Record summary: A member of the RNA family "SAM riboswitch aptamer (S box leader)" from Clostridium manihotivorum, 116 nucleotides long. The source organism's lineage runs through Bacteria, Bacillati, Bacillota, Eubacteriales and Clostridium.

RNA sequence: UUCUUAUCACGAGAGGUGGAGGGACUGGCCCUAUGAUACCCAGCAACCAGCAUAAGCUUCAUUUAACUUAUGUAUUGGUGCUAAUUCCUGCAGUUGAUAAAACUGGUAGAUGAGGA
Numbered sequence: 001u002u003c004u005u006a007u008c009a010c011g012a013g014a015g016g017u018g019g020a021g022g023g024a025c026u027g028g029c030c031c032u033a034u035g036a037u038a039c040c041c042a043g044c045a046a047c048c049a050g051c052a053u054a055a056g057c058u059u060c061a062u063u064u065a066a067c068u069u070a071u072g073u074a075u076u077g078g079u080g081c082u083a084a085u086u087c088c089u090g091c092a093g094u095u096g097a098u099a100a101a102a103c104u105g106g107u108a109g110a111u112g113a114g115g116a
Stems, first nucleotide, its partner, number of pairs: 001116008013041001015040003021031003025090001027088002042082004047078002050073007086108001091105005
For this family Rfam cites "SAM recognition and conformational switching mechanism in the Bacillus subtilis yitJ S box/SAM-I riboswitch" (Lu et al., J Mol Biol, 2010).